[Rfam]
RNA sequence: AUACUUACCACAGGACGUCAGUGGAGAUCAAGAAGUCCUAUUGACCGGGUAUGCCUUUCUUAAAGGAUGCCGCACUGUCAGGCAGCUGCAACUGCACUUGUGCGUCGCAUGCAGCCUCAUGACUUUUUACCAGUGCUGGUUCCUUAGCGACAAUCACUUUCCUGCGGAAGGCGUGCUUGCUGACGUCUCAUUCUCUCGUCUGCCGCUAGGCGCUGGGGACUUCGGUUUCUGGCACUGGCGGGGGACCCUUUUUUCCUUCUGCCUGGAGAAGUAAUGUGCUGAUUACAACUUAGCACUGAGAGAGCUGGGGCCGCUGCGUCAUAGGGGCCUGCCGGGAGUGAACGAUACCUGGUUGUGGACGCGCUGGCCGCCGCCUUCGGGUAGCAGUCGGCUGUUCGCAGCUUGCAGUAGGGGUUUCACGGGGAGGUUCUGGCAAAGCGGUCUUGGUGGAGACGGGUGGGUCUUAUAAUUUUUGAUUUCUAUC
Number, nucleotide and partner (000 for none) at each position: 001a000002u000003a000004c000005u000006u000007a000008c000009c000010a000011c000012a467013g464014g463015a462016c000017g045018u044019c043020a042021g041022u000023g038024g037025a036026g000027a000028u000029c000030a000031a000032g000033a000034a000035g000036u025037c024038c023039u000040a000041u021042u020043g019044a018045c017046c179047g178048g177049g176050u175051a174052u173053g172054c171055c000056u170057u169058u168059c167060u166061u000062a000063a000064a000065g162066g161067a160068u000069g000070c000071c000072g000073c000074a000075c000076u000077g000078u000079c000080a000081g000082g000083c000084a000085g000086c000087u000088g000089c000090a000091a000092c000093u000094g000095c000096a000097c000098u000099u000100g000101u000102g000103c000104g000105u000106c000107g000108c000109a000110u000111g000112c000113a000114g000115c000116c000117u000118c000119a000120u000121g000122a000123c000124u000125u000126u000127u000128u000129a000130c000131c000132a000133g000134u000135g000136c000137u000138g000139g000140u000141u000142c000143c000144u000145u000146a000147g000148c000149g000150a000151c000152a000153a000154u000155c000156a000157c000158u000159u000160u067161c066162c065163u000164g000165c000166g060167g059168a058169a057170g056171g054172c053173g052174u051175g050176c049177u048178u047179g046180c000181u000182g000183a000184c455185g454186u453187c452188u451189c450190a000191u000192u303193c302194u301195c300196u299197c298198g246199u245200c244201u243202g000203c000204c000205g000206c000207u000208a000209g000210g000211c000212g000213c000214u000215g000216g000217g000218g000219a000220c000221u000222u000223c000224g000225g000226u000227u000228u000229c000230u000231g000232g000233c000234a000235c000236u000237g000238g000239c000240g000241g000242g000243g201244g200245a199246c198247c000248c000249u000250u000251u000252u000253u000254u000255c000256c271257u270258u269259c268260u267261g000262c000263c000264u000265g000266g000267a260268g259269a258270a257271g256272u000273a000274a000275u000276g296277u295278g294279c293280u292281g291282a290283u000284u000285a000286c000287a000288a000289c000290u282291u281292a280293g279294c278295a277296c276297u000298g197299a196300g195301a194302g193303a192304g000305c000306u000307g000308g000309g000310g000311c000312c000313g000314c000315u000316g000317c000318g000319u000320c000321a000322u000323a000324g000325g000326g000327g000328c000329c000330u000331g000332c000333c000334g000335g000336g000337a000338g000339u000340g000341a000342a000343c000344g000345a000346u000347a000348c000349c000350u000351g000352g000353u000354u000355g000356u000357g000358g000359a000360c000361g000362c000363g000364c000365u000366g000367g000368c000369c000370g000371c000372c000373g000374c000375c000376u000377u000378c000379g000380g000381g000382u000383a000384g000385c000386a000387g000388u000389c000390g000391g000392c000393u000394g000395u000396u000397c000398g000399c000400a000401g000402c000403u000404u000405g000406c000407a000408g000409u000410a000411g000412g000413g000414g000415u000416u000417u000418c000419a000420c000421g000422g000423g000424g000425a000426g000427g000428u000429u000430c000431u000432g000433g000434c000435a000436a000437a000438g000439c000440g000441g000442u000443c000444u000445u000446g000447g000448u000449g000450g189451a188452g187453a186454c185455g184456g000457g000458u000459g000460g000461g000462u015463c014464u013465u000466a000467u012468a000469a000470u000471u000472u000473u000474u000475g000476a000477u000478u000479u000480c000481u000482a000483u000484c000
The record is a 484-nucleotide RNA from Eremothecium gossypii, which matches "Yeast U1 spliceosomal RNA" in Rfam. Clan: U1 clan. It scores 167 bits against the family's covariance model. For this family Rfam cites "The uRNA database" (Zwieb, Nucleic Acids Res, 1997). U1 is a small nuclear RNA (snRNA) component of the spliceosome (involved in pre-mRNA splicing). The family's RNA type in Rfam is spliceosomal small nuclear RNA.